[Rfam]
The family of this 52-nucleotide RNA is "Glutamine-II riboswitch aptamer". Rfam links the family to the GO term glutamine binding.
RNA sequence: GUACGUUCACCCUUCGGGGCGCAUAUCUACCAUGCAUGGAACGGGGCAUGGA
Dot-bracket structure: ...[[[[[.(((....)))..........((((((...]]]]]..)))))).
The family's consensus secondary structure is taken from published work. Rfam's curators put it in the seed alignment.